RNA sequence: CACUUGUUAAUAAGAUGUUUCUUAUUAAAAAUGUCUGAUCAUAUAAACUCCAUAGUGACUUCAGUGCAUUUCUGAGAUAGGCU
Numbered sequence: 001c002a003c004u005u006g007u008u009a010a011u012a013a014g015a016u017g018u019u020u021c022u023u024a025u026u027a028a029a030a031a032u033g034u035c036u037g038a039u040c041a042u043a044u045a046a047a048c049u050c051c052a053u054a055g056u057g058a059c060u061u062c063a064g065u066g067c068a069u070u071u072c073u074g075a076g077a078u079a080g081g082c083u
Stems, first nucleotide, its partner, number of pairs: 003081006
RNA: Small nucleolar RNA SNORD72